RNA sequence: AUCACGCGUUCGUUAUGUCUUUCAUAAUGCUGCCUGAUUUCGGCCGUUCGGCGGUCGCCUCGGGCGGCUACACCGUCCUCAUUGGCACUGGGUCCGGUCCGAGAAGAGAACCGGUUCCUCAGCCCCCCAGCCCCCCGGGCUCGUAAGGGCCGGACCCUGUGGCCAUGUUCCAGACGGUUCAUUCCCGAACGACACGCGGGCCGGUCAUGCCGGCCCUUUU
Number, nucleotide and partner (000 for none) at each position: 001a000002u000003c000004a000005c000006g000007c000008g000009u000010u000011c000012g000013u000014u000015a000016u000017g000018u000019c000020u000021u000022u000023c000024a000025u000026a000027a000028u000029g000030c000031u000032g000033c000034c000035u181036g180037a000038u051039u000040u000041c000042g000043g000044c000045c000046g000047u000048u000049c000050g000051g038052c000053g000054g000055u000056c000057g000058c000059c000060u000061c000062g000063g000064g000065c000066g000067g000068c000069u000070a000071c000072a000073c000074c000075g000076u000077c000078c000079u000080c000081a000082u173083u172084g171085g170086c000087a168088c167089u000090g157091g156092g155093u000094c153095c152096g151097g150098u149099c148100c147101g000102a000103g000104a000105a000106g142107a141108g140109a000110a000111c138112c137113g136114g135115u000116u000117c000118c000119u000120c000121a000122g131123c130124c000125c000126c000127c000128c000129a000130g123131c122132c000133c000134c000135c114136c113137g112138g111139g000140c108141u107142c106143g000144u000145a000146a000147g100148g099149g098150c097151c096152g095153g094154a000155c092156c091157c090158u000159g000160u000161g000162g000163c000164c000165a000166u000167g088168u087169u000170c085171c084172a083173g082174a000175c000176g000177g000178u000179u000180c036181a035182u000183u000184c000185c000186c000187g000188a000189a000190c000191g000192a000193c000194a000195c000196g000197c000198g216199g215200g214201c213202c212203g211204g210205u209206c000207a000208u000209g205210c204211c203212g202213g201214c200215c199216c198217u000218u000219u000220u000

Source information
Shown here is a 220-nucleotide RNA from Rhodovulum sp. PH10, a member of the family "Bradyrhizobiaceae sRNA BjrC174". The pairing is the family consensus, mapped onto this sequence. The match comes from Rfam's covariance-model search (52 bits).